[Rfam]
ZMP/ZTP riboswitch aptamer (pfl RNA motif): a 103-nucleotide RNA sequence from Acrocarpospora corrugata.
On this family, see Ren et al., Structure 2015: "Global RNA Fold and Molecular Recognition for a pfl Riboswitch Bound to ZMP, a Master Regulator of One-Carbon Metabolism".

RNA sequence: UGGCAGGGUCGCGACUGGCGCUGACGUCGCCCUGCGGGCGCGUCGCUAGGUGGGGCACCACCGGGGAGCGAACCUGCGGAGGCCGUGCGCCUGGGUCACCGCG
Numbered sequence: 001u002g003g004c005a006g007g008g009u010c011g012c013g014a015c016u017g018g019c020g021c022u023g024a025c026g027u028c029g030c031c032c033u034g035c036g037g038g039c040g041c042g043u044c045g046c047u048a049g050g051u052g053g054g055g056c057a058c059c060a061c062c063g064g065g066g067a068g069c070g071a072a073c074c075u076g077c078g079g080a081g082g083c084c085g086u087g088c089g090c091c092u093g094g095g096u097c098a099c100c101g102c103g
Base pairs, nucleotide, nucleotide: 003077004076005075006074007073009071010070011069012068015065016064017091018090019089020088021087050061051060052059053058081097082096083095084094